[Rfam]
RNA: U11 spliceosomal RNA
RNA sequence: AAAAAGGGCAUUUACCGUCAUUGGUACUCAGGCUGCUUUGCGGCCUGGGCGGAAUCGCCAUCCAGGGAUUUCGGAUGCAUAAUAUUUGGGGACUGAGGCUGUUGGUUGCCACUAGCACCGACGCCCAC
Number, nucleotide and partner (000 for none) at each position: 001a000002a000003a000004a000005a000006g000007g000008g078009c077010a076011u075012u074013u026014a025015c024016c023017g022018u000019c000020a000021u000022u017023g016024g015025u014026a013027c049028u048029c047030a046031g045032g044033c043034u042035g041036c000037u000038u000039u000040g000041c035042g034043g033044c032045c031046u030047g029048g028049g027050c073051g072052g071053a070054a069055u068056c067057g000058c000059c000060a000061u000062c000063c000064a000065g000066g000067g056068a055069u054070u053071u052072c051073g050074g012075a011076u010077g009078c008079a000080u000081a000082a000083u000084a000085u000086u000087u000088g000089g000090g000091g000092a000093c000094u000095g000096a000097g125098g124099c123100u000101g122102u121103u120104g119105g118106u000107u117108g116109c115110c000111a000112c000113u000114a000115g109116c108117a107118c105119c104120g103121a102122c101123g099124c098125c097126c000127a000128c000